Shown here is a 99-nucleotide sequence, a member of the family "Small nucleolar RNA Z43". By type it is a C/D-box small nucleolar RNA.
RNA sequence: GAGCAAUGAAGACUACUUGUAAUUGGUCUCGUUCGUCGUAACGGCAUUCCAAUGCCUUGCCGACUAUCUUGUUAUAUCACCACCCAUUGAUAAGUGUUC
Numbered sequence: 001g002a003g004c005a006a007u008g009a010a011g012a013c014u015a016c017u018u019g020u021a022a023u024u025g026g027u028c029u030c031g032u033u034c035g036u037c038g039u040a041a042c043g044g045c046a047u048u049c050c051a052a053u054g055c056c057u058u059g060c061c062g063a064c065u066a067u068c069u070u071g072u073u074a075u076a077u078c079a080c081c082a083c084c085c086a087u088u089g090a091u092a093a094g095u096g097u098u099c
Stems, first nucleotide, its partner, number of pairs: 001099004046058001